The record is a 109-nucleotide RNA from Modicisalibacter xianhensis, which matches "t44 RNA" in Rfam. About the family: This family consists of a number of bacterial RNA genes of between 135 and 170 bases in length.
RNA sequence: AGCGUAAUGCCUUGAAAACACACAUGCACCGGCACAUGGUCCCGGGUGCCGCGAAUCAGGUCGCUUCGGCGCAUCGCGGUCGGAUCCAUGGGGUGUAUGGAGGCCUAAC
Number, nucleotide and partner (000 for none) at each position: 001a000002g000003c000004g000005u000006a000007a000008u000009g000010c000011c000012u000013u000014g000015a000016a000017a000018a000019c000020a000021c000022a000023c099024a098025u097026g096027c095028a094029c093030c092031g000032g000033c000034a000035c090036a089037u088038g087039g086040u084041c083042c082043c000044g000045g000046g000047u000048g080049c079050c078051g077052c076053g075054a074055a000056u000057c000058a000059g000060g000061u000062c000063g000064c000065u000066u000067c000068g000069g000070c000071g000072c000073a000074u054075c053076g052077c051078g050079g049080u048081c000082g042083g041084a040085u000086c039087c038088a037089u036090g035091g000092g030093g029094u028095g027096u026097a025098u024099g023100g000101a000102g000103g000104c000105c000106u000107a000108a000109c000